The record is a 91-nucleotide RNA sequence from Poecile atricapillus, which matches "Small nucleolar RNA SNORD91 family" in Rfam. NCBI's taxonomy places the organism under Eukaryota, Opisthokonta, Theropoda, Telluraves, Poecile. It scores 54 bits against the family's covariance model.

RNA sequence: UGAGGAAGCCUGUGAUGUCUUAGCCGUGGUGUCUGAACCUGGCUGAAGGACUCUUGUGAAGACUCGUUUUGGCUCUGAGGCUUCACACAAG
Numbered sequence: 001u002g003a004g005g006a007a008g009c010c011u012g013u014g015a016u017g018u019c020u021u022a023g024c025c026g027u028g029g030u031g032u033c034u035g036a037a038c039c040u041g042g043c044u045g046a047a048g049g050a051c052u053c054u055u056g057u058g059a060a061g062a063c064u065c066g067u068u069u070u071g072g073c074u075c076u077g078a079g080g081c082u083u084c085a086c087a088c089a090a091g
Stems, first nucleotide, its partner, number of pairs: 005084006